The record is a 233-nucleotide RNA sequence from Trifolium subterraneum, which matches "MIR2655 microRNA precursor family" in Rfam. The source organism's lineage runs through Eukaryota, Streptophyta, Streptophytina, rosids and Trifolium.
RNA sequence: CCCUUAUCUUUUAAAAGUUUCAAGUUGGUCCCUUAUCUUUAUUUUAGGUUUCAAGUUGGUCCCUUCCGUCAAUUUUUUAACUAUUUCCGUUAAAUUUGGACACGUGGCACACUUGAACAUGUGACACGUGUCGAGAAUUAACGGUAACAGUAAAAAAAUUGACGGAAGGGACCAACUUGAAACCUAAAAAAAAGAUAAGGGACCAACUUGAAACCUAAAAUAAAGAUAAGGGA
Numbered sequence: 001c002c003c004u005u006a007u008c009u010u011u012u013a014a015a016a017g018u019u020u021c022a023a024g025u026u027g028g029u030c031c032c033u034u035a036u037c038u039u040u041a042u043u044u045u046a047g048g049u050u051u052c053a054a055g056u057u058g059g060u061c062c063c064u065u066c067c068g069u070c071a072a073u074u075u076u077u078u079a080a081c082u083a084u085u086u087c088c089g090u091u092a093a094a095u096u097u098g099g100a101c102a103c104g105u106g107g108c109a110c111a112c113u114u115g116a117a118c119a120u121g122u123g124a125c126a127c128g129u130g131u132c133g134a135g136a137a138u139u140a141a142c143g144g145u146a147a148c149a150g151u152a153a154a155a156a157a158a159u160u161g162a163c164g165g166a167a168g169g170g171a172c173c174a175a176c177u178u179g180a181a182a183c184c185u186a187a188a189a190a191a192a193a194g195a196u197a198a199g200g201g202a203c204c205a206a207c208u209u210g211a212a213a214c215c216u217a218a219a220a221u222a223a224a225g226a227u228a229a230g231g232g233a
Base pairs, nucleotide, nucleotide: 002231003230004229005228006227007226008225023208024207025206027204028203029202031200032199033198034197035196036195037194038193039192040191042189043188045186046185047184